[Rfam]
RNA sequence: AUGACGGUUGUGGGAGAGUGCAAUGCGACAAGCCACCGAAGGAGCAAGUUCCAAAAAGACCCUUGGAACAAAUCUCUCAGGUAGAUGGAACCACAAUCGGACG
Numbered sequence: 001a002u003g004a005c006g007g008u009u010g011u012g013g014g015a016g017a018g019u020g021c022a023a024u025g026c027g028a029c030a031a032g033c034c035a036c037c038g039a040a041g042g043a044g045c046a047a048g049u050u051c052c053a054a055a056a057a058g059a060c061c062c063u064u065g066g067a068a069c070a071a072a073u074c075u076c077u078c079a080g081g082u083a084g085a086u087g088g089a090a091c092c093a094c095a096a097u098c099g100g101a102c103g
Base pairs, nucleotide, nucleotide: 006098007097008096009095010094011093012092013091020033021032035082036081037080038078039077042076043075044074048069049068050067051066052065053064054063